This 129-nucleotide RNA sequence from Cicer arietinum belongs to the Rfam family "Small nucleolar RNA snoR74".
The match comes from Rfam's covariance-model search (98 bits).
[Rfam]
RNA sequence: AUAAAAGCAGUGGUCUGUUGCCUAUGUGAGCAGUUCUCUCGUAACCUUCAGGAAUAUUAAAACCAACGUUAUUGGGUGAACCUCUGUUCCUUAUUUGUGACUGAAGGUUCAGUAAAUGAUGGAACAUUU
Numbered sequence: 001a002u003a004a005a006a007g008c009a010g011u012g013g014u015c016u017g018u019u020g021c022c023u024a025u026g027u028g029a030g031c032a033g034u035u036c037u038c039u040c041g042u043a044a045c046c047u048u049c050a051g052g053a054a055u056a057u058u059a060a061a062a063c064c065a066a067c068g069u070u071a072u073u074g075g076g077u078g079a080a081c082c083u084c085u086g087u088u089c090c091u092u093a094u095u096u097g098u099g100a101c102u103g104a105a106g107g108u109u110c111a112g113u114a115a116a117u118g119a120u121g122g123a124a125c126a127u128u129u
Stems, first nucleotide, its partner, number of pairs: 005048003012036001015033003063122003067118004077111007